Notes: The record is a 58-nucleotide RNA sequence from Microvirga vignae, which matches "terC RNA" in Rfam. The base pairs follow the family's consensus structure, which is taken from published work. Rfam classes the family as a cis-regulatory element. Rfam 15.1 lists 1,112 matches to the family in 772 species. It scores 67 bits against the family's covariance model. Lineage of the source: Bacteria > Pseudomonadota > Hyphomicrobiales > Methylobacteriaceae > Microvirga.
[Rfam]
RNA sequence: ACGAGGGUCCGGGCCCCUCUGGCGAGCGGGUCGCCGCUCGCGAUGUCGGACUCCUUCU
Numbered sequence: 001a002c003g004a005g006g007g008u009c010c011g012g013g014c015c016c017c018u019c020u021g022g023c024g025a026g027c028g029g030g031u032c033g034c035c036g037c038u039c040g041c042g043a044u045g046u047c048g049g050a051c052u053c054c055u056u057c058u
Base pairs, nucleotide, nucleotide: 006052007051008050009049010048011047012046022041023040024039025038026037027036028035029034